[Rfam]
RNA sequence: AUUAAAUGAGUGCCUAAUCUGGGAAACCAGAACGGGGGAACCGUUUCUUGGGGUGAAAUCGCAAUUGCGAUCGGGGAGCCUUUCAACCGAACCCGGCAGCUAACCUCGGCGGCAUACGAAAGGGAGAAU
Number, nucleotide and partner (000 for none) at each position: 001a000002u000003u000004a000005a000006a000007u000008g000009a000010g000011u114012g113013c112014c111015u000016a000017a000018u031019c030020u029021g000022g000023g000024a000025a000026a000027c000028c000029a020030g019031a018032a000033c108034g107035g106036g105037g104038g000039a000040a000041c000042c050043g049044u000045u000046u000047c000048u000049u043050g042051g094052g093053g092054u000055g000056a000057a000058a000059u070060c069061g068062c067063a000064a000065u000066u000067g062068c061069g060070a059071u000072c000073g088074g087075g000076g000077a000078g000079c000080c000081u000082u000083u000084c000085a000086a000087c074088c073089g000090a000091a000092c053093c052094c051095g000096g000097c000098a000099g000100c000101u000102a000103a000104c037105c036106u035107c034108g033109g000110c000111g014112g013113c012114a011115u000116a000117c000118g000119a000120a000121a000122g000123g000124g000125a000126g000127a000128a000129u000